[Rfam]
RNA: c-di-GMP-I-GGC riboswitch aptamer
RNA sequence: CCCGAUAACGCCAAACCAUCCGCGAGGGUGGGACGGAAAGCGGCGGGUCUUAGAAAUAAGAUGGCCGAGCUGCCGAAG
Numbered sequence: 001c002c003c004g005a006u007a008a009c010g011c012c013a014a015a016c017c018a019u020c021c022g023c024g025a026g027g028g029u030g031g032g033a034c035g036g037a038a039a040g041c042g043g044c045g046g047g048u049c050u051u052a053g054a055a056a057u058a059a060g061a062u063g064g065c066c067g068a069g070c071u072g073c074c075g076a077a078g
Stems, first nucleotide, its partner, number of pairs: 001078001003075002011036002016031006034064001039071003044067003047062003
Dot-bracket structure: (.((......((...((((((....))))))..[))..(((..((((((..........))).]))).)))..))..)